Description: Small nucleolar RNA SNORA79: a 143-nucleotide RNA from Myotis davidii. Lineage of the source: Eukaryota > Opisthokonta > Dipnotetrapodomorpha > Tetrapoda > Myotis. A search with the family's covariance model found it, with a score of 120 bits. Rfam's curators write: ACA65 (SNORA79) is a member of the H/ACA class of snoRNAs that guide the sites of modification of uridines to pseudouridines. This snoRNA was identified by computational screening and its expression in mouse experimentally verified by Northern blot and primer extension analysis. Rfam links the family to the GO terms RNA processing and nucleolus.

RNA sequence: AGGUUUCUCUGCCUCCUUCCGCCUGCAGGCCUGGCGUUAGGAUUUCAGGUCAUCGUAAAUUGGAAGUGAUUUUCUUCCCUCAGAGAAUAUCAGGAUAAUGGGAUUAUCUGUUUGUUCUCUGAAAUUUGCGGAAUCAAACACUU
Numbered sequence: 001a002g003g004u005u006u007c008u009c010u011g012c013c014u015c016c017u018u019c020c021g022c023c024u025g026c027a028g029g030c031c032u033g034g035c036g037u038u039a040g041g042a043u044u045u046c047a048g049g050u051c052a053u054c055g056u057a058a059a060u061u062g063g064a065a066g067u068g069a070u071u072u073u074c075u076u077c078c079c080u081c082a083g084a085g086a087a088u089a090u091c092a093g094g095a096u097a098a099u100g101g102g103a104u105u106a107u108c109u110g111u112u113u114g115u116u117c118u119c120u121g122a123a124a125u126u127u128g129c130g131g132a133a134u135c136a137a138a139c140a141c142u143u
Stems, first nucleotide, its partner, number of pairs: 002054003007049002014042004020036004068135006080122010093109005